[Rfam]
RNA sequence: AUGCAUCUAUUUGACAGACUUGGAGCAGUUACUAUCUGCUGCUAAGGUCUUCACUACAGAUGCAAGAAAAACAUGUCCUUGCAUUUUCCAUCUAUCUAAUUGUGGCAGCUGAGAUUGACUAGAGGAAUACAGGG
Numbered sequence: 001a002u003g004c005a006u007c008u009a010u011u012u013g014a015c016a017g018a019c020u021u022g023g024a025g026c027a028g029u030u031a032c033u034a035u036c037u038g039c040u041g042c043u044a045a046g047g048u049c050u051u052c053a054c055u056a057c058a059g060a061u062g063c064a065a066g067a068a069a070a071a072c073a074u075g076u077c078c079u080u081g082c083a084u085u086u087u088c089c090a091u092c093u094a095u096c097u098a099a100u101u102g103u104g105g106c107a108g109c110u111g112a113g114a115u116u117g118a119c120u121a122g123a124g125g126a127a128u129a130c131a132g133g134g
Stems, first nucleotide, its partner, number of pairs: 002064007012053002016050005024040005076126005084117001087114002092108002095105002